RNA sequence: AUCAAGGGAGUAGCUAACGUGUAAACGUGAUAAUAUCGACAAUCCGAGUAAUCCGGUAUUAUCUUAAAAAGUGAGACUUGUGGCCGUGCCACAAGUCUCUAUUU
Dot-bracket structure: ....(.(...((.........))..).)((((((((((..(..........).)))))))))).........((((((((((((...)))))))))))).....
Numbered sequence: 001a002u003c004a005a006g007g008g009a010g011u012a013g014c015u016a017a018c019g020u021g022u023a024a025a026c027g028u029g030a031u032a033a034u035a036u037c038g039a040c041a042a043u044c045c046g047a048g049u050a051a052u053c054c055g056g057u058a059u060u061a062u063c064u065u066a067a068a069a070a071g072u073g074a075g076a077c078u079u080g081u082g083g084c085c086g087u088g089c090c091a092c093a094a095g096u097c098u099c100u101a102u103u104u
Stems, first nucleotide, its partner, number of pairs: 005028001007026001011023002029063010041052001073099012
Background: This 104-nucleotide RNA from Floricoccus tropicus belongs to the Rfam family "Streptococcus sRNA 10". A search with the family's covariance model found it, with a score of 56 bits. Taxonomically the source falls in Floricoccus (Bacteria, Bacilli, Lactobacillales, Streptococcaceae). On this family, see Tesorero et al., PLoS One 2013: "Novel regulatory small RNAs in Streptococcus pyogenes". It is annotated as a small RNA.